[Rfam]
RNA: Eukaryotic large subunit ribosomal RNA, nucleotides 939 to 1430
RNA sequence: UCUGCUGAAGUUUUUCUUAGAAUAGCAGUAACGUUUUUAGUUUUAUAAAGUAAAGCGAAUAAUUAGAGGCCUAGAGGUUAAAACAACUUUCACCUAUUUUUAAACUUUAAAUAUAUAAGAAGUUUUUAUUACUUAAUUAAACGUAGAUAUUUAAAUAUACUGUUACUAGUAGGCUAUUUUUAGUAAGCAGAACUAGCGAUACAGAAUAAACUAAACACAGAGUUAAAAUGCUAAAAUACACGCUUAUCAGACACUAUAAAAGGUAUUAGUUUAUCUAAAUAGCAGAACAGUAGCUAUAGAAGUUAGAAUCUGCUAAAAAGUGUGUAACAACUUAUCUGCUAAAUAAACUAGCUCUAAAAAUAAAUAGCGUUUAAGCGUAUUACUUAUACUCCGCUGCUAAAGUAGAAAUUAUACUUUAGUAAGUAGGCAGGCGUAGAAGCUUAUAAUAAAGCUUUAAAAGUAACUUUAAGUAGAACAGCCUCUAGUACAGAU
Numbered sequence: 001u002c003u004g005c006u007g008a009a010g011u012u013u014u015u016c017u018u019a020g021a022a023u024a025g026c027a028g029u030a031a032c033g034u035u036u037u038u039a040g041u042u043u044u045a046u047a048a049a050g051u052a053a054a055g056c057g058a059a060u061a062a063u064u065a066g067a068g069g070c071c072u073a074g075a076g077g078u079u080a081a082a083a084c085a086a087c088u089u090u091c092a093c094c095u096a097u098u099u100u101u102a103a104a105c106u107u108u109a110a111a112u113a114u115a116u117a118a119g120a121a122g123u124u125u126u127u128a129u130u131a132c133u134u135a136a137u138u139a140a141a142c143g144u145a146g147a148u149a150u151u152u153a154a155a156u157a158u159a160c161u162g163u164u165a166c167u168a169g170u171a172g173g174c175u176a177u178u179u180u181u182a183g184u185a186a187g188c189a190g191a192a193c194u195a196g197c198g199a200u201a202c203a204g205a206a207u208a209a210a211c212u213a214a215a216c217a218c219a220g221a222g223u224u225a226a227a228a229u230g231c232u233a234a235a236a237u238a239c240a241c242g243c244u245u246a247u248c249a250g251a252c253a254c255u256a257u258a259a260a261a262g263g264u265a266u267u268a269g270u271u272u273a274u275c276u277a278a279a280u281a282g283c284a285g286a287a288c289a290g291u292a293g294c295u296a297u298a299g300a301a302g303u304u305a306g307a308a309u310c311u312g313c314u315a316a317a318a319a320g321u322g323u324g325u326a327a328c329a330a331c332u333u334a335u336c337u338g339c340u341a342a343a344u345a346a347a348c349u350a351g352c353u354c355u356a357a358a359a360a361u362a363a364a365u366a367g368c369g370u371u372u373a374a375g376c377g378u379a380u381u382a383c384u385u386a387u388a389c390u391c392c393g394c395u396g397c398u399a400a401a402g403u404a405g406a407a408a409u410u411a412u413a414c415u416u417u418a419g420u421a422a423g424u425a426g427g428c429a430g431g432c433g434u435a436g437a438a439g440c441u442u443a444u445a446a447u448a449a450a451g452c453u454u455u456a457a458a459a460g461u462a463a464c465u466u467u468a469a470g471u472a473g474a475a476c477a478g479c480c481u482c483u484a485g486u487a488c489a490g491a492u
Stems, first nucleotide, its partner, number of pairs: 001431006011024001013022003027167007041120007053108001054106002060102003065097001067095003072092001074090004079085001122148004127143001129141002173197004178192004203212002218393001220391002223388001227384001229382001236381001238380001241377003261355003266351009282339005288312003294306002318333001322331002395421009434484004439479003444475001451471002457466002